[Rfam]
RNA: Eukaryotic large subunit ribosomal RNA, nucleotides 645 to 924
Organism: Colletotrichum abscissum
Nucleotides: 280
Stems, first nucleotide, its partner, number of pairs: 007135010018124001021045002030036001049056002065085004071078002088119002091115002093112001099106001139278001142275001146268003150264002156243010166232001169199003175192001177190005204229001206227002209225002213222001246256002
Number, partner (000 for none) and nucleotide at each position: 001000a002000g003000a004000g005000u006000c007135a008134a009133c010132u011131u012130u013129a014128u015127a016126u017000a018124c019000g020000a021045g022044u023000a024000u025000u026000u027000a028000a029000a030036u031000a032000u033000u034000a035000a036030a037000c038000c039000c040000c041000u042000a043000c044022g045021c046000a047000u048000a049056a050055u051000a052000a053000a054000a055050a056049u057000a058000a059000a060000c061000a062000c063000a064000a065085a066084u067083a068082a069000g070000a071078g072077c073000u074000u075000c076000g077072g078071c079000g080000u081000a082068u083067u084066a085065u086000c087000a088119a089118c090000c091115g092114a093112u094000c095000c096000u097000a098000a099106u100000a101000u102000u103000c104000u105000c106099a107000a108000a109000u110000a111000a112093a113000u114092u115091u116000a117000a118089g119088u120000a121000a122000g123000a124018g125000c126016a127015u128014a129013u130012a131011a132010g133009g134008u135007u136000a137000g138000a139278c140000c141000c142275g143000a144000a145000a146268g147267a148266a149000a150264g151263u152000a153000a154000a155000c156243u157242a158241u159240g160239c161238g162237u163236a164235u165234a166232u167000a168000a169199g170198g171197u172000a173000a174000a175192g176000c177190u178189a179188g180187a181186g182000g183000a184000a185000a186181c187180u188179c189178u190177a191000a192175u193000a194000a195000a196000a197171g198170c199169u200000c201000g202000u203000a204229g205000c206227g207226g208000u209225u210224c211000u212000a213222a214000c215000g216000u217000a218000c219000a220000a221000a222213u223000c224210g225209a226207u227206u228000a229204u230000u231000a232166a233000a234165u235164a236163u237162a238161c239160g240159c241158a242157u243156a244000a245000g246256g247255g248000c249000a250000a251000a252000a253000a254000a255247c256246u257000a258000a259000u260000c261000g262000a263151a264150c265000c266148u267147u268146u269000u270000a271000a272000u273000a274000a275142c276000u277000a278139g279000u280000u